[Rfam]
Shown here is a 108-nucleotide RNA sequence from Pseudonaja textilis, a member of the family "Small nucleolar RNA U6-53/MBII-28". The family's RNA type in Rfam is C/D-box small nucleolar RNA.
RNA sequence: CACCCAUGAUGACUUGCCAUGCUAAUACCGAGGCACCGAGGGGACAACUUGCCCUGAAUUUGGGUGUCUGUGAGUUAAAAUUGCUUCUCACAGGAAGUCCUGAGGUGU
Numbered sequence: 001c002a003c004c005c006a007u008g009a010u011g012a013c014u015u016g017c018c019a020u021g022c023u024a025a026u027a028c029c030g031a032g033g034c035a036c037c038g039a040g041g042g043g044a045c046a047a048c049u050u051g052c053c054c055u056g057a058a059u060u061u062g063g064g065u066g067u068c069u070g071u072g073a074g075u076u077a078a079a080a081u082u083g084c085u086u087c088u089c090a091c092a093g094g095a096a097g098u099c100c101u102g103a104g105g106u107g108u
Stems, first nucleotide, its partner, number of pairs: 001107004041054003
It scores 86 bits against the family's covariance model. A reference for the family is Huttenhofer et al. (2001), "RNomics: an experimental approach that identifies 201 candidates for novel, small, non-messenger RNAs in mouse", EMBO J. The pairing is the family consensus, mapped onto this sequence.